The record is a 68-nucleotide RNA from Dasyornis broadbenti, which matches "mir-33 microRNA precursor family" in Rfam. Lineage of the source: Eukaryota > Neognathae > Passeriformes > Meliphagoidea > Dasyornis. A reference for the family is Li et al. (2009), "Direct sequencing and expression analysis of a large number of miRNAs in Aedes aegypti and a multi-species survey of novel mosquito miRNAs", BMC Genomics.
RNA sequence: CGGGGGUGCAUUGUAGUUGCAUUGCAUGUGUCAGACUGGGAGUGCAAUGCCCCUGCCAUGCAGCCCCG
Dot-bracket structure: ((((.((((((.((((..(.(((((((..............))))))).)..)))).))))).)))))